A member of the RNA family "c-di-AMP riboswitch aptamer (ydaO/yuaA leader)" from Paenibacillus sp. FSL H7-0357, 189 nucleotides long. The organism belongs to Paenibacillus, within Bacteria. This family represents a conserved RNA structure found upstream of the ydaO and yuaA genes in Bacillus subtilis and related genes in other bacteria.
[Rfam]
RNA sequence: AUACGCAGUCCGCUUAAUUUCCGUUAUGGAAAGCGGGGGAACCAACAAUCGGCAGCCGAUGUGAGAGUCGGAGCCGGUUAUGGGGUGAAUCCUGUGAAAGUGCGAGAGAAUGCUCGCAUGGAUACAGGUAGGGCGACUCUCACUGCCCGAAUCCGACAGCUAACCUCGUAAGCGUAUUAGAGAGGAUGA
Numbered sequence: 001a002u003a004c005g006c007a008g009u010c011c012g013c014u015u016a017a018u019u020u021c022c023g024u025u026a027u028g029g030a031a032a033g034c035g036g037g038g039g040a041a042c043c044a045a046c047a048a049u050c051g052g053c054a055g056c057c058g059a060u061g062u063g064a065g066a067g068u069c070g071g072a073g074c075c076g077g078u079u080a081u082g083g084g085g086u087g088a089a090u091c092c093u094g095u096g097a098a099a100g101u102g103c104g105a106g107a108g109a110a111u112g113c114u115c116g117c118a119u120g121g122a123u124a125c126a127g128g129u130a131g132g133g134c135g136a137c138u139c140u141c142a143c144u145g146c147c148c149g150a151a152u153c154c155g156a157c158a159g160c161u162a163a164c165c166u167c168g169u170a171a172g173c174g175u176a177u178u179a180g181a182g183a184g185g186a187u188g189a
Base pairs, nucleotide, nucleotide: 011174012173013172014171018032019031020030021029022028033169034168035167036166037165038164043082044081083154084153085152091128092127093126094125095124096123131148132147133146134145